[Rfam]
RNA: SucA RNA motif
Organism: Orrella marina
RNA sequence: CCGCUAUCCGCAGACCGGUUAGGCCGAGAAAGCGGAAGGUUUCCUGCAUCGUUUCGGGUGAAGCACCCGGCAAGGUGAAGCG
Numbered sequence: 001c002c003g004c005u006a007u008c009c010g011c012a013g014a015c016c017g018g019u020u021a022g023g024c025c026g027a028g029a030a031a032g033c034g035g036a037a038g039g040u041u042u043c044c045u046g047c048a049u050c051g052u053u054u055c056g057g058g059u060g061a062a063g064c065a066c067c068c069g070g071c072a073a074g075g076u077g078a079a080g081c082g
Stems, first nucleotide, its partner, number of pairs: 002082003007036005016026004038044002047077004054070007